[Rfam]
RNA: Bacillaceae-1 RNA
Organism: Oceanobacillus zhaokaii
RNA sequence: UAAAAAGGACCGCGUCGGUUAAGAACGCAUCGUCCUGAUGCAGUACCGACACUAGCACGUCCUGUGCG
Numbered sequence: 001u002a003a004a005a006a007g008g009a010c011c012g013c014g015u016c017g018g019u020u021a022a023g024a025a026c027g028c029a030u031c032g033u034c035c036u037g038a039u040g041c042a043g044u045a046c047c048g049a050c051a052c053u054a055g056c057a058c059g060u061c062c063u064g065u066g067c068g
Base pairs, nucleotide, nucleotide: 014050015049016048017047018046019045027041028040029039030038031037055067056066057065058064